This 66-nucleotide RNA sequence from Actinomadura rubrisoli belongs to the Rfam family "L31-Actinobacteria ribosomal protein leader". A search with the family's covariance model found it, with a score of 40 bits. It is annotated as a cis-regulatory leader.
RNA sequence: GCGGUACCGGUUCACGCCUCCCACAUCUCCCAUGGCCCCGCCGUGCGGAGGAGGCGCCCGGCGACC
Numbered sequence: 001g002c003g004g005u006a007c008c009g010g011u012u013c014a015c016g017c018c019u020c021c022c023a024c025a026u027c028u029c030c031c032a033u034g035g036c037c038c039c040g041c042c043g044u045g046c047g048g049a050g051g052a053g054g055c056g057c058c059c060g061g062c063g064a065c066c
Stems, first nucleotide, its partner, number of pairs: 003066003007061004015056007